[Rfam]
RNA sequence: UAAUAGAGCCAUUGGAACAAUAACCCACUAACUUGGUCAGGUCCUAACCGAAGCAGCCACAUGAGGAAGUGUUGUGUUCAGUGGUUUUUUAUUAAAU
Numbered sequence: 001u002a003a004u005a006g007a008g009c010c011a012u013u014g015g016a017a018c019a020a021u022a023a024c025c026c027a028c029u030a031a032c033u034u035g036g037u038c039a040g041g042u043c044c045u046a047a048c049c050g051a052a053g054c055a056g057c058c059a060c061a062u063g064a065g066g067a068a069g070u071g072u073u074g075u076g077u078u079c080a081g082u083g084g085u086u087u088u089u090u091a092u093u094a095a096a097u
Stems, first nucleotide, its partner, number of pairs: 004091005009084006017075006025066002028063001034059004042051002
Dot-bracket structure: ...(((((((((((..((((((..((.(.....((((....((......))....))))...).))...))))))...))))))..)))))......

Shown here is a 97-nucleotide RNA, a member of the family "Bacterial small signal recognition particle RNA". The family's RNA type in Rfam is non-coding RNA gene. The family's consensus secondary structure is taken from published work.